[Rfam]
RNA: Small nucleolar RNA SNORD58
RNA sequence: UUGCAAUGAUGACAACUUAGGACACCUUUGGAUUACCCAUGAAAAGAACUUUUAAAAUCUGAGCAAC
Numbered sequence: 001u002u003g004c005a006a007u008g009a010u011g012a013c014a015a016c017u018u019a020g021g022a023c024a025c026c027u028u029u030g031g032a033u034u035a036c037c038c039a040u041g042a043a044a045a046g047a048a049c050u051u052u053u054a055a056a057a058u059c060u061g062a063g064c065a066a067c
Stems, first nucleotide, its partner, number of pairs: 001066004